[Rfam]
RNA sequence: CAAAAUUACUAGGGGAGCCCUGUUAGGGCUGAGAUUGGAAUACAAAUUCCUAAACCCUUAAAACCUGAUUUGGUUAGAACCAACGUAGGGAAGUACAGAGAUGAUAUA
Number, nucleotide and partner (000 for none) at each position: 001c000002a000003a000004a000005a000006u000007u095008a094009c093010u092011a058012g057013g056014g055015g000016a000017g029018c028019c027020c026021u025022g000023u000024u000025a021026g020027g019028g018029c017030u000031g000032a000033g000034a000035u000036u000037g050038g049039a048040a047041u000042a000043c000044a000045a000046a000047u040048u039049c038050c037051u000052a000053a000054a000055c014056c013057c012058u011059u000060a000061a000062a000063a000064c089065c088066u087067g086068a000069u000070u083071u082072g081073g080074u000075u000076a000077g000078a000079a000080c073081c072082a071083a070084c000085g000086u067087a066088g065089g064090g000091a000092a010093g009094u008095a007096c000097a000098g000099a000100g000101a000102u000103g000104a000105u000106a000107u000108a000
RNA: TPP riboswitch aptamer (THI element)